[Rfam]
RNA sequence: UGCGACGGGUCGAGAUGGUUUCAUAUUCUAGUAAUAUGCAAACCAAAUUGAUUUAGCGGAGGCCGCGACGUGAGUCACCUACCGGAUGUAGGGGAGUCGGAUAAACACUUUUGUGGAGAAG
Dot-bracket structure: ................(((((((((((.....)))))).)))))...............(..((.............(((((.....)))))))..)..........(((((....)))))
RNA: Enterococcus sRNA 68 (Lacto-3 RNA)